[Rfam]
RNA sequence: ACCUGCCUGUGGUGCUUCCUGCGCCACAGGUGUCAGACAGACACAGUGCCAUGGGAAGAACUGGGCACUUUUGGGCGUU
Numbered sequence: 001a002c003c004u005g006c007c008u009g010u011g012g013u014g015c016u017u018c019c020u021g022c023g024c025c026a027c028a029g030g031u032g033u034c035a036g037a038c039a040g041a042c043a044c045a046g047u048g049c050c051a052u053g054g055g056a057a058g059a060a061c062u063g064g065g066c067a068c069u070u071u072u073g074g075g076c077g078u079u
Stems, first nucleotide, its partner, number of pairs: 004032012046068005053061001
RNA: nrdJ RNA